[Rfam]
The record is an 88-nucleotide RNA from Alkaliphilus pronyensis, which matches "c-di-GMP-I riboswitch aptamer" in Rfam.
It scores 73 bits against the family's covariance model.
Nucleotides: 088
Stems, first nucleotide, its partner, number of pairs: 012037002017032006040082001042080002046078002048074003055068004
Number, partner (000 for none) and nucleotide at each position: 001000u002000u003000u004000c005000g006000a007000u008000a009000a010000g011000g012037g013036c014000a015000a016000a017032c018031c019030u020029u021028c022027u023000g024000a025000a026000a027022g028021g029020a030019g031018g032017g033000g034000a035000c036013g037012c038000a039000a040082a041000g042080c043079u044000u045000u046078g047077g048074a049073u050072c051000u052000a053000a054000g055068g056067a057066a058065g059000c060000a061000u062000u063000u064000u065058u066057u067056u068055c069000u070000a071000u072050g073049a074048u075000u076000g077047c078046c079043a080042g081000g082040u083000g084000c085000c086000g087000a088000a